Rfam assigns this 139-nucleotide RNA from Methylobacterium gnaphalii to the family "ALIL pseudoknot". The match comes from Rfam's covariance-model search (66 bits). Gene Ontology term of the family: positive regulation of translational frameshifting. Rfam classes the family as a cis-regulatory element. The family has 26 seed sequences and 2,146 matches in Rfam 15.1. Taxonomically the source falls in Methylobacterium (Bacteria, Pseudomonadati, Alphaproteobacteria, Hyphomicrobiales).

[Rfam]
RNA sequence: GGCGUAUUUUGCAUUGGCGGAGCUCGACCGCCGGUCGUGGACAUGAUCGCCUUCAUCGACGACCAUCGCGCUGUCCAUAGGGUCGUCCUUCGAGAGCCUCAGGAUGAGGCCGAUCUGCAGGGUCCUGCCGAUCGCCCCG
Numbered sequence: 001g002g003c004g005u006a007u008u009u010u011g012c013a014u015u016g017g018c019g020g021a022g023c024u025c026g027a028c029c030g031c032c033g034g035u036c037g038u039g040g041a042c043a044u045g046a047u048c049g050c051c052u053u054c055a056u057c058g059a060c061g062a063c064c065a066u067c068g069c070g071c072u073g074u075c076c077a078u079a080g081g082g083u084c085g086u087c088c089u090u091c092g093a094g095a096g097c098c099u100c101a102g103g104a105u106g107a108g109g110c111c112g113a114u115c116u117g118c119a120g121g122g123u124c125c126u127g128c129c130g131a132u133c134g135c136c137c138c139g
Stems, first nucleotide, its partner, number of pairs: 016032005078139001080137003111134002114131002117128004